The family of this 97-nucleotide RNA sequence from Protea cynaroides is "Plastid-rps12 3UTR RNA". A search with the family's covariance model found it, with a score of 83 bits. Rfam's curators write: Plastid rpl20 is a non-coding RNA (ncRNA) recognised in plastids. NCBI's taxonomy places the organism under Eukaryota, Viridiplantae, Streptophyta, Magnoliopsida, Protea. For this family Rfam cites "Retrograde signaling in plants: A critical review focusing on the GUN pathway and beyond" (Richter et al., Plant Commun, 2023). The family's consensus secondary structure was predicted with LocARNA.

[Rfam]
RNA sequence: UGUUUCUAUUGGUGUAAAUCCAAUCACCUUCAUUCAAGAUGAGAAACAAUUCCCCAUUGGCAGCAAAUGGUUAUGCAUUAAGCAGGGGAAGAGGAGC
Numbered sequence: 001u002g003u004u005u006c007u008a009u010u011g012g013u014g015u016a017a018a019u020c021c022a023a024u025c026a027c028c029u030u031c032a033u034u035c036a037a038g039a040u041g042a043g044a045a046a047c048a049a050u051u052c053c054c055c056a057u058u059g060g061c062a063g064c065a066a067a068u069g070g071u072u073a074u075g076c077a078u079u080a081a082g083c084a085g086g087g088g089a090a091g092a093g094g095a096g097c
Base pairs, nucleotide, nucleotide: 009023010022011021012020052087053086054085056078057077060074062072063071064070
Dot-bracket structure: ........((((.......))))............................(((.((..(.(((.....))).)..))......)))..........